The family of this 134-nucleotide RNA sequence from Actinomadura barringtoniae is "c-di-AMP riboswitch aptamer (ydaO/yuaA leader)". It scores 82 bits against the family's covariance model.

Nucleotides: 134
Base pairs, nucleotide, nucleotide: 011119012118013117014116018031019030020029021028022027032114033113034112035111036110037109042054055099056098057097063076064075065074066073079093080092081091082090
Number, partner (000 for none) and nucleotide at each position: 001000g002000c003000g004000a005000c006000u007000g008000g009000a010000c011119c012118g013117c014116c015000g016000a017000g018031u019030c020029c021028c022027c023000g024000c025000g026000a027022g028021g029020g030019g031018a032114g033113c034112c035111g036110g037109g038000g039000a040000c041000c042054c043000a044000c045000a046000c047000u048000c049000c050000c051000c052000c053000g054042g055099g056098g057097g058000c059000g060000a061000a062000u063076c064075c065074g066073c067000g068000c069000a070000c071000c072000a073066g074065c075064g076063g077000u078000a079093g080092g081091g082090c083000g084000a085000c086000u087000c088000c089000g090082g091081c092080c093079c094000g095000a096000g097057c098056c099055c100000g101000u102000c103000a104000g105000c106000u107000a108000a109037c110036c111035c112034g113033g114032u115000a116014g117013g118012c119011g120000g121000u122000u123000a124000g125000g126000a127000g128000a129000g130000g131000a132000g133000a134000a
NCBI's taxonomy places the organism under Bacteria, Actinomycetes, Streptosporangiales, Thermomonosporaceae, Actinomadura.